[Rfam]
RNA sequence: UGGUUGGCAUAGUCGUGUGGAUACUUCGUUACUUUGAACAUUUUCUACACAUGAGAAUUCUUGUGGGGUUUCGACCCUACAGUUUCCACUGACGCAACCCAACCACUUU
Numbered sequence: 001u002g003g004u005u006g007g008c009a010u011a012g013u014c015g016u017g018u019g020g021a022u023a024c025u026u027c028g029u030u031a032c033u034u035u036g037a038a039c040a041u042u043u044u045c046u047a048c049a050c051a052u053g054a055g056a057a058u059u060c061u062u063g064u065g066g067g068g069u070u071u072c073g074a075c076c077c078u079a080c081a082g083u084u085u086c087c088a089c090u091g092a093c094g095c096a097a098c099c100c101a102a103c104c105a106c107u108u109u
Base pairs, nucleotide, nucleotide: 002104003103004102005101006100007099012093013092014091015090017089018088019087020086026074027073028072
RNA: Vault RNA
Organism: Mytilus coruscus